Overview
Rfam assigns this 267-nucleotide RNA from Ceutorhynchus assimilis to the family "Arthropod 7SK RNA". Rfam classes the family as a non-coding RNA gene. The family is grouped with related families in Rfam's "7SK clan". The match comes from Rfam's covariance-model search (50 bits).

RNA sequence: GGGGGUGCGUGGCUGUGAUGACACGGCCAAACUUCGAUCGCUCUGCGUUUCCGUAGCUCUUGAUCAGUUUGGUAUCUUUGUCAUCACUCGGUUUUCAGUUCGGUUACCGUUGGAACACCGAAGUCUUUGUCGCUCAGUGCGCUGCGAUGGUAACUGGAACGCCGCCGUUUCAAAAUUUGAUAUCAUGGUGGUUUAAGGGGUUAGAUUUUCUCAGUGUAACACCCCCAGUUAGGCACUACGGAAUUUUAGUAGUAUGCCAUUUUUUUG
Numbered sequence: 001g002g003g004g005g006u007g008c009g010u011g012g013c014u015g016u017g018a019u020g021a022c023a024c025g026g027c028c029a030a031a032c033u034u035c036g037a038u039c040g041c042u043c044u045g046c047g048u049u050u051c052c053g054u055a056g057c058u059c060u061u062g063a064u065c066a067g068u069u070u071g072g073u074a075u076c077u078u079u080g081u082c083a084u085c086a087c088u089c090g091g092u093u094u095u096c097a098g099u100u101c102g103g104u105u106a107c108c109g110u111u112g113g114a115a116c117a118c119c120g121a122a123g124u125c126u127u128u129g130u131c132g133c134u135c136a137g138u139g140c141g142c143u144g145c146g147a148u149g150g151u152a153a154c155u156g157g158a159a160c161g162c163c164g165c166c167g168u169u170u171c172a173a174a175a176u177u178u179g180a181u182a183u184c185a186u187g188g189u190g191g192u193u194u195a196a197g198g199g200g201u202u203a204g205a206u207u208u209u210c211u212c213a214g215u216g217u218a219a220c221a222c223c224c225c226c227a228g229u230u231a232g233g234c235a236c237u238a239c240g241g242a243a244u245u246u247u248a249g250u251a252g253u254a255u256g257c258c259a260u261u262u263u264u265u266u267g
Stems, first nucleotide, its partner, number of pairs: 001226007015087005027072003031068003036065004040059001046056001232258003235253005